[Rfam]
Nucleotides: 075
Stems, first nucleotide, its partner, number of pairs: 010067003014063002019058002024053004030048005
Number, partner (000 for none) and nucleotide at each position: 001000c002000u003000c004000g005000c006000g007000u008000u009000a010067g011066g012065g013000a014063u015062u016000g017000c018000a019058g020057u021000g022000g023000a024053a025052a026051u027050c028000c029000u030048u031047u032046u033045g034044u035000g036000a037000a038000g039000u040000a041000u042000g043000a044034a045033c046032a047031a048030a049000a050027g051026a052025u053024u054000g055000u056000a057020g058019u059000g060000a061000a062015a063014a064000g065012c066011c067010c068000g069000c070000u071000c072000g073000a074000a075000c

The family of this 75-nucleotide RNA sequence from Tenacibaculum todarodis is "Flavo-1 RNA". The match comes from Rfam's covariance-model search (47 bits). The base pairs follow the family's consensus structure, which is taken from published work.